[Rfam]
RNA sequence: CGUCGAUUCAUUGGGGAGUAGCCGCCCUGUCGUCACGACAGGGGUGCGCGUCAACAGACUUGGCCGAAGGGUUCUGACUUUGGCUAUGGCGCGUACAGCCUCGGGCCUGGCGAGACCGAUGACGACACUUCCGCCAUCCGGGCCGGGAAGCGUUGUCAUUGGUGCGUUCAGCAUUCGGCCCGGC
Numbered sequence: 001c002g003u004c005g006a007u008u009c010a011u012u013g014g015g016g017a018g019u020a021g022c023c024g025c026c027c028u029g030u031c032g033u034c035a036c037g038a039c040a041g042g043g044g045u046g047c048g049c050g051u052c053a054a055c056a057g058a059c060u061u062g063g064c065c066g067a068a069g070g071g072u073u074c075u076g077a078c079u080u081u082g083g084c085u086a087u088g089g090c091g092c093g094u095a096c097a098g099c100c101u102c103g104g105g106c107c108u109g110g111c112g113a114g115a116c117c118g119a120u121g122a123c124g125a126c127a128c129u130u131c132c133g134c135c136a137u138c139c140g141g142g143c144c145g146g147g148a149a150g151c152g153u154u155g156u157c158a159u160u161g162g163u164g165c166g167u168u169c170a171g172c173a174u175u176c177g178g179c180c181c182g183g184c
Stems, first nucleotide, its partner, number of pairs: 026042003044096010061086009098184003103179001
RNA: Manganese Mn2+ riboswitch aptamer (yybP-ykoY)
Organism: Pandoraea terrae